[Rfam]
RNA: MIR6152 microRNA precursor family
Organism: Nicotiana sylvestris
Nucleotides: 093
Base pairs, nucleotide, nucleotide: 002092004090009087010086011085012084013083014082015081017079018078020077021076023074024073026072027071028070029069030068031067035061036060037055038054040050
Number, partner (000 for none) and nucleotide at each position: 001000u002092g003000c004090a005000c006000a007000g008000a009087u010086u011085a012084u013083u014082g015081u016000a017079u018078u019000c020077g021076a022000c023074u024073g025000u026072a027071u028070u029069c030068a031067c032000g033000g034000a035061g036060u037055g038054a039000a040050g041000a042000g043000g044000a045000u046000u047000a048000u049000a050040c051000u052000a053000u054038u055037u056000u057000u058000u059000a060036a061035c062000g063000g064000a065000a066000a067031g068030u069029g070028a071027a072026u073024c074023a075000a076021u077020u078018a079017a080000c081015a082014u083013a084012a085011u086010a087009g088000a089000c090004u091000c092002c093000u